[Rfam]
This 54-nucleotide RNA from Actinomadura latina belongs to the Rfam family "L17-Actino-Proteobacteria ribosomal protein leader". By type it is a cis-regulatory leader. The source organism's lineage runs through Bacteria, Bacillati, Streptosporangiales, Thermomonosporaceae and Actinomadura. Pairs were carried over by alignment from the consensus structure, which is taken from published work. The literature on the family includes a 2020 paper in BMC Microbiol by Eckert and Weinberg, "Discovery of 20 novel ribosomal leader candidates in bacteria and archaea".
Nucleotides: 054
Stems, first nucleotide, its partner, number of pairs: 001019004006014003024054003028051007
Number, partner (000 for none) and nucleotide at each position: 001019u002018u003017c004016c005000c006014c007013g008012g009000c010000c011000g012008u013007c014006g015000c016004g017003g018002a019001a020000c021000c022000a023000g024054c025053u026052g027000a028051c029050a030049c031048c032047g033046g034045u035000a036000c037000c038000u039000g040000a041000c042000a043000c044000g045034g046033c047032c048031g049030g050029u051028g052026c053025a054024g